[Rfam]
RNA sequence: GCCGGGAGUCGGGCGGGCGCGGUCGUCGCCAACCUGGUCAGGUCCUGACGGAAGCAGCCACAACGAUUUUGCCGCGGGUCGUUCCGGCUCCCACCUCA
Numbered sequence: 001g002c003c004g005g006g007a008g009u010c011g012g013g014c015g016g017g018c019g020c021g022g023u024c025g026u027c028g029c030c031a032a033c034c035u036g037g038u039c040a041g042g043u044c045c046u047g048a049c050g051g052a053a054g055c056a057g058c059c060a061c062a063a064c065g066a067u068u069u070u071g072c073c074g075c076g077g078g079u080c081g082u083u084c085c086g087g088c089u090c091c092c093a094c095c096u097c098a
Stems, first nucleotide, its partner, number of pairs: 004092005011084005018076006025067004035060004043052003
RNA: Bacterial small signal recognition particle RNA
Organism: Sphingobium phenoxybenzoativorans